[Rfam]
RNA sequence: AUAUAAGUAAAUUUUAACUUUUAGAUUCAUUCAAUCAAUGAUGUAUGUGGUCUUUUAGACCACAUACAUCAUUGAUUGAAUGAAUCUAAAAGUCAAAAUUUGCUUAUGU
Numbered sequence: 001a002u003a004u005a006a007g008u009a010a011a012u013u014u015u016a017a018c019u020u021u022u023a024g025a026u027u028c029a030u031u032c033a034a035u036c037a038a039u040g041a042u043g044u045a046u047g048u049g050g051u052c053u054u055u056u057a058g059a060c061c062a063c064a065u066a067c068a069u070c071a072u073u074g075a076u077u078g079a080a081u082g083a084a085u086c087u088a089a090a091a092g093u094c095a096a097a098a099u100u101u102g103c104u105u106a107u108g109u
Stems, first nucleotide, its partner, number of pairs: 002108006009101004014096002017093008026084018048062004
Description: Rfam assigns this 109-nucleotide sequence from Medicago truncatula to the family "MIR2593 microRNA precursor family". Rfam 15.1 lists 1,262 matches to the family in 6 species.